[Rfam]
The record is an 81-nucleotide RNA from Gouania willdenowi, which matches "mir-17 microRNA precursor family" in Rfam. About the family: This family represents the microRNA (miRNA) precursor mir-17, family, which includes mir-20, mir-91, and mir-103. miRNAs are transcribed as ~70nt precursors (modelled here) and subsequently processed by the Dicer enzyme to give a ~22nt product. In this case the mature sequence comes from the 3' arm of the precursor. The extents of the hairpin precursors are not generally known and are estimated based on hairpin prediction.

RNA sequence: UAGUGUGUGAUAAAGUGCUUACAGUGCAGGUAGUGGUUAUAACUCGGCCUACUGCAAUGUGAGCACUUGUUUCUGACGCUG
Numbered sequence: 001u002a003g004u005g006u007g008u009g010a011u012a013a014a015g016u017g018c019u020u021a022c023a024g025u026g027c028a029g030g031u032a033g034u035g036g037u038u039a040u041a042a043c044u045c046g047g048c049c050u051a052c053u054g055c056a057a058u059g060u061g062a063g064c065a066c067u068u069g070u071u072u073c074u075g076a077c078g079c080u081g
Stems, first nucleotide, its partner, number of pairs: 004078003009073002013068011025056003029053005